The family of this 194-nucleotide sequence from Anopheles gambiae is "drz-agam-2-2 ribozyme".
Taxonomically the source falls in Anopheles gambiae (Eukaryota, Bilateria, Mandibulata, Hexapoda).
A search with the family's covariance model found it, with a score of 145 bits.
Its family is annotated with catalytic activity in the Gene Ontology.
A reference for the family is Webb et al. (2009), "Widespread occurrence of self-cleaving ribozymes", Science.
The base pairs follow the family's consensus structure, which is taken from published work.
RNA sequence: ACCUACCCUAGCUCUGUAUUGGGAUGAGAUCCGAAACCCUCCGUGGGAUAAUACAGGCUCUCCCAUCCAACUCCUAUUCCGACACGUCCUCGUCGUGCAGAGUGGUAACAUGUGCCUCCAUAUAUCCUAGCUUGUGUACACGGGCUAGAUCCAACCCCUUGGGCGGAUGGUGGCAUAUGGGGAACCAGGAGGGG
Numbered sequence: 001a002c003c004u005a006c007c008c009u010a011g012c013u014c015u016g017u018a019u020u021g022g023g024a025u026g027a028g029a030u031c032c033g034a035a036a037c038c039c040u041c042c043g044u045g046g047g048a049u050a051a052u053a054c055a056g057g058c059u060c061u062c063c064c065a066u067c068c069a070a071c072u073c074c075u076a077u078u079c080c081g082a083c084a085c086g087u088c089c090u091c092g093u094c095g096u097g098c099a100g101a102g103u104g105g106u107a108a109c110a111u112g113u114g115c116c117u118c119c120a121u122a123u124a125u126c127c128u129a130g131c132u133u134g135u136g137u138a139c140a141c142g143g144g145c146u147a148g149a150u151c152c153a154a155c156c157c158c159u160u161g162g163g164c165g166g167a168u169g170g171u172g173g174c175a176u177a178u179g180g181g182g183a184a185c186c187a188g189g190a191g192g193g194g
Base pairs, nucleotide, nucleotide: 011103012102013101014100015099016098017097022068023067024066025065026064028062029061031057032056072194073193074192075191077190078189080188084096085095086094088105089104109179110178111177112176113175114174115173116172118170119169124168125167126166127165132154133153134152136150137149156163157162